[Rfam]
RNA sequence: GACGGCGCGGUUGGGUUAAUCAGCAUUCACCUUGCCUUUUACCAGAUGAAUCCUUGGCCCACCGCAACCAGCCGCAUUCUCAAUCUUUGGAACCAUUAGUUCGCCCUGAACUUUU
Numbered sequence: 001g002a003c004g005g006c007g008c009g010g011u012u013g014g015g016u017u018a019a020u021c022a023g024c025a026u027u028c029a030c031c032u033u034g035c036c037u038u039u040u041a042c043c044a045g046a047u048g049a050a051u052c053c054u055u056g057g058c059c060c061a062c063c064g065c066a067a068c069c070a071g072c073c074g075c076a077u078u079c080u081c082a083a084u085c086u087u088u089g090g091a092a093c094c095a096u097u098a099g100u101u102c103g104c105c106c107u108g109a110a111c112u113u114u115u
Stems, first nucleotide, its partner, number of pairs: 003074004008064004013060006025051005031045002091115001098112004

The family of this 115-nucleotide RNA sequence from Pseudocercospora fijiensis is "U5 spliceosomal RNA". The family's consensus secondary structure is taken from published work. About the family: U5 RNA is a component of both types of known spliceosome. Lineage of the source: Eukaryota > Ascomycota > Dothideomycetidae > Mycosphaerellales > Pseudocercospora fijiensis. For this family Rfam cites "The uRNA database" (Zwieb, Nucleic Acids Res, 1997).